mir-737 microRNA precursor family: a 62-nucleotide sequence from Oryzias melastigma. Gene Ontology terms of the family: miRNA-mediated post-transcriptional gene silencing and RISC complex. The source organism's lineage runs through Eukaryota, Chordata, Percomorphaceae, Beloniformes and Oryzias. A search with the family's covariance model found it, with a score of 62 bits.
[Rfam]
RNA sequence: UGGUUUUUUUAGGUUUUGAUUUUCGUAGCGAUGGAGAAGGAAAUCAAAGCCUAAAGAAAAUA
Numbered sequence: 001u002g003g004u005u006u007u008u009u010u011a012g013g014u015u016u017u018g019a020u021u022u023u024c025g026u027a028g029c030g031a032u033g034g035a036g037a038a039g040g041a042a043a044u045c046a047a048a049g050c051c052u053a054a055a056g057a058a059a060a061u062a
Stems, first nucleotide, its partner, number of pairs: 004059021
Dot-bracket structure: ...(((((((((((((((((((((..............)))))))))))))))))))))...